[Rfam]
RNA: mir-9215 microRNA precursor family
RNA sequence: UGAAGUGCUCUGACACUAGGACGUGUGGCUGCCUUUGGUUGGUGGGAACCAGACUUGCCCAGGGUCAGUGUCCCCAAUGUUCCGU
Numbered sequence: 001u002g003a004a005g006u007g008c009u010c011u012g013a014c015a016c017u018a019g020g021a022c023g024u025g026u027g028g029c030u031g032c033c034u035u036u037g038g039u040u041g042g043u044g045g046g047a048a049c050c051a052g053a054c055u056u057g058c059c060c061a062g063g064g065u066c067a068g069u070g071u072c073c074c075c076a077a078u079g080u081u082c083c084g085u
Stems, first nucleotide, its partner, number of pairs: 002082003006079002009076001012072006019066001022063001024061002027059003031054001033052001037050004